[Rfam]
Description: Shown here is a 488-nucleotide part of an RNA from Aquifex aeolicus, a member of the family "Bacterial small subunit ribosomal RNA". Rfam links the family to the GO terms ribosome and structural constituent of ribosome. Lineage of the source: Bacteria > Aquificota > Aquificales > Aquificaceae > Aquifex aeolicus.
RNA sequence: UGGCGGGGGCCCGCACAACCGGUGGAGCGUCUGGUUCAAUUCGAUGCUAACCGAAGAACCUUACCCGGGCUUGACAUGCCGGGGAGACUCCGCGAAAGCGGAGUUGUGGAAGUCCCUAGGACUUUCCCCCGGCACAGGUGGUGCAUGGCCGUCGUCAGCUCGUGUCGUGAGAUGUUGGGUUAAGUCCCGCAACGAGCGCAACCCCUGCCCCCAGUUGCUACCCCGUUUGGGGAGCACUCUGGGGGGACCGCCGGCGAUAAGCCGGAGGAAGGGGGGGAUGACGUCAGGUCAGUAUGCCCUUUAUGCCCGGGGCCACACAGGCGCUACAGUGGCCGGGACAAUGGGAUGCGACCCCGUAAGGGGGAGCUAAUCCCUAAACCCGGUCAUGGUGCGGAUUGGGGGCUGAAACUCGCCCCCAUGAAGCCGGAAUCGGUAGUAACGGGGUAUCAGCGAUGUCCCCGUGAAUACGUUCUCGGGCCUUGCACACA
Numbered sequence: 001u002g003g004c005g006g007g008g009g010c011c012c013g014c015a016c017a018a019c020c021g022g023u024g025g026a027g028c029g030u031c032u033g034g035u036u037c038a039a040u041u042c043g044a045u046g047c048u049a050a051c052c053g054a055a056g057a058a059c060c061u062u063a064c065c066c067g068g069g070c071u072u073g074a075c076a077u078g079c080c081g082g083g084g085a086g087a088c089u090c091c092g093c094g095a096a097a098g099c100g101g102a103g104u105u106g107u108g109g110a111a112g113u114c115c116c117u118a119g120g121a122c123u124u125u126c127c128c129c130c131g132g133c134a135c136a137g138g139u140g141g142u143g144c145a146u147g148g149c150c151g152u153c154g155u156c157a158g159c160u161c162g163u164g165u166c167g168u169g170a171g172a173u174g175u176u177g178g179g180u181u182a183a184g185u186c187c188c189g190c191a192a193c194g195a196g197c198g199c200a201a202c203c204c205c206u207g208c209c210c211c212c213a214g215u216u217g218c219u220a221c222c223c224c225g226u227u228u229g230g231g232g233a234g235c236a237c238u239c240u241g242g243g244g245g246g247a248c249c250g251c252c253g254g255c256g257a258u259a260a261g262c263c264g265g266a267g268g269a270a271g272g273g274g275g276g277g278a279u280g281a282c283g284u285c286a287g288g289u290c291a292g293u294a295u296g297c298c299c300u301u302u303a304u305g306c307c308c309g310g311g312g313c314c315a316c317a318c319a320g321g322c323g324c325u326a327c328a329g330u331g332g333c334c335g336g337g338a339c340a341a342u343g344g345g346a347u348g349c350g351a352c353c354c355c356g357u358a359a360g361g362g363g364g365a366g367c368u369a370a371u372c373c374c375u376a377a378a379c380c381c382g383g384u385c386a387u388g389g390u391g392c393g394g395a396u397u398g399g400g401g402g403c404u405g406a407a408a409c410u411c412g413c414c415c416c417c418a419u420g421a422a423g424c425c426g427g428a429a430u431c432g433g434u435a436g437u438a439a440c441g442g443g444g445u446a447u448c449a450g451c452g453a454u455g456u457c458c459c460c461g462u463g464a465a466u467a468c469g470u471u472c473u474c475g476g477g478c479c480u481u482g483c484a485c486a487c488a
Stems, first nucleotide, its partner, number of pairs: 001486002003483003007480007015470002019433005024327001026325008034316002040055004064311007077134002080131005087104007106126001108124002137300002140298004146294002148289003151285001153283002158197006164173003176189004203277004208245007218234002222232003248268002251265005331385007343374003348367002353362003392423001397418007439462006